The family of this 67-nucleotide RNA sequence is "potC RNA".
The sequence is in the family's curated seed alignment.
Pairs were carried over by alignment from the consensus structure, which is taken from published work.
Rfam classes the family as a cis-regulatory element.
RNA sequence: UAUAUAGUGCUCAUAACCUUCCCAAUUAGAUGAUUUACCCCAUCUAAUAUGUUAUGAGCACUUAUAA
Numbered sequence: 001u002a003u004a005u006a007g008u009g010c011u012c013a014u015a016a017c018c019u020u021c022c023c024a025a026u027u028a029g030a031u032g033a034u035u036u037a038c039c040c041c042a043u044c045u046a047a048u049a050u051g052u053u054a055u056g057a058g059c060a061c062u063u064a065u066a067a
Stems, first nucleotide, its partner, number of pairs: 006062010017051001027046005